About this RNA
Rfam assigns this 140-nucleotide RNA from Erinaceus europaeus to the family "Small Cajal body specific RNA 21". About the family: scaRNAs are a specific class of small nuclear RNAs which localise to the Cajal bodies and guide the modification of RNA polymerase II transcribed spliceosomal RNAs U1, U2, U4, U5 and U12. Gene Ontology terms of the family: nucleolus, Cajal body and RNA processing. NCBI's taxonomy places the organism under Eukaryota, Eumetazoa, Gnathostomata, Amniota, Erinaceus. The literature on the family includes a 2002 paper in EMBO J by Darzacq et al., "Cajal body-specific small nuclear RNAs: a novel class of 2'-O-methylation and pseudouridylation guide RNAs". Rfam 15.1 lists 278 matches to the family in 138 species. The base pairs follow the family's consensus structure, which was predicted with RNAalifold.

[Rfam]
RNA sequence: UGGCUCGGUUUCCUGGAAGGUGGACUCAGUCUGCUCCACCUCCCCUCAGACGAGCCUAGAGCAAAGAGGCUAGGUCUCCUUCCCUAUGGGAAAGGCGGUUAAGAAAGGAGCCUCACUGGGGCAGUCCUUGCCUUACAUUU
Numbered sequence: 001u002g003g004c005u006c007g008g009u010u011u012c013c014u015g016g017a018a019g020g021u022g023g024a025c026u027c028a029g030u031c032u033g034c035u036c037c038a039c040c041u042c043c044c045c046u047c048a049g050a051c052g053a054g055c056c057u058a059g060a061g062c063a064a065a066g067a068g069g070c071u072a073g074g075u076c077u078c079c080u081u082c083c084c085u086a087u088g089g090g091a092a093a094g095g096c097g098g099u100u101a102a103g104a105a106a107g108g109a110g111c112c113u114c115a116c117u118g119g120g121g122c123a124g125u126c127c128u129u130g131c132c133u134u135a136c137a138u139u140u
Base pairs, nucleotide, nucleotide: 002056003055004054005053006052007051015044016043018041019040020039021038022037023036024035066134067133068132069131070130072128073127074126078121079120080119088113089112090111